[Rfam]
RNA sequence: CGCCGUAAAAUUCCGAACUCCCAUGGCGCGGGAGGCGGGGGACCAUAUUUUCUGGGGCGAGUCUAGGUUGUCAACCAAUAUUGUAGAUUGACACCCAGUAGGGAAGGAAGCCCUUUCCCGAGCCCGUCAGCUAACCUCGCAGGAUCCAAGGGGCUGUUUG
Numbered sequence: 001c002g003c004c005g006u007a008a009a010a011u012u013c014c015g016a017a018c019u020c021c022c023a024u025g026g027c028g029c030g031g032g033a034g035g036c037g038g039g040g041g042a043c044c045a046u047a048u049u050u051u052c053u054g055g056g057g058c059g060a061g062u063c064u065a066g067g068u069u070g071u072c073a074a075c076c077a078a079u080a081u082u083g084u085a086g087a088u089u090g091a092c093a094c095c096c097a098g099u100a101g102g103g104a105a106g107g108a109a110g111c112c113c114u115u116u117c118c119c120g121a122g123c124c125c126g127u128c129a130g131c132u133a134a135c136c137u138c139g140c141a142g143g144a145u146c147c148a149a150g151g152g153g154c155u156g157u158u159u160g
Stems, first nucleotide, its partner, number of pairs: 012144003018034005035140006055125003063098002066095003101119004
Description
A member of the RNA family "c-di-AMP riboswitch aptamer (ydaO/yuaA leader)" from Alicyclobacillaceae bacterium I2511, 160 nucleotides long. Rfam describes the family as follows. This family represents a conserved RNA structure found upstream of the ydaO and yuaA genes in Bacillus subtilis and related genes in other bacteria. A search with the family's covariance model found it, with a score of 66 bits. Lineage of the source: Bacteria > Bacillati > Bacillota > Caryophanales > Alicyclobacillaceae. Its family is annotated with regulation of gene expression and cyclic-di-AMP binding in the Gene Ontology.